[Rfam]
RNA: Xanthine riboswitch aptamer (NMT1 RNA)
RNA sequence: AACCGGAGUAGAAGCAGUCAACGCCCCCGGCAAACGGCACAAGGCGUCGGUCAUUGCUCCCUUU
Numbered sequence: 001a002a003c004c005g006g007a008g009u010a011g012a013a014g015c016a017g018u019c020a021a022c023g024c025c026c027c028c029g030g031c032a033a034a035c036g037g038c039a040c041a042a043g044g045c046g047u048c049g050g051u052c053a054u055u056g057c058u059c060c061c062u063u064u
Stems, first nucleotide, its partner, number of pairs: 005060006015049001019050001021047005